[Rfam]
This 46-nucleotide RNA from Conchiformibius steedae belongs to the Rfam family "PreQ1 (pre queuosine) riboswitch aptamer".
The base pairs follow the family's consensus structure.
For this family Rfam cites "Identification of four genes necessary for biosynthesis of the modified nucleoside queuosine" (Reader et al., J Biol Chem, 2004).
The match comes from Rfam's covariance-model search (43 bits).
About the family: This family is a bacterial riboswitch that binds to the metabolite preQ1, an intermediate in the biosynthesis of the modified nucleoside queuosine from GTP. One example of this riboswitch is located in the leader of the Bacillus subtilis ykvJKLM (queCDEF) operon which encodes four genes necessary for queuosine production. PreQ1 binding to the riboswitch aptamer is thought to induce premature transcription termination within the leader to down-regulate expression of these genes.
RNA sequence: AACAACGCGGUUCGCAAACCUCCCGCGACAACAAAACUAGGAAACC
Numbered sequence: 001a002a003c004a005a006c007g008c009g010g011u012u013c014g015c016a017a018a019c020c021u022c023c024c025g026c027g028a029c030a031a032c033a034a035a036a037c038u039a040g041g042a043a044a045c046c
Base pairs, nucleotide, nucleotide: 006027007026008025009024010023016038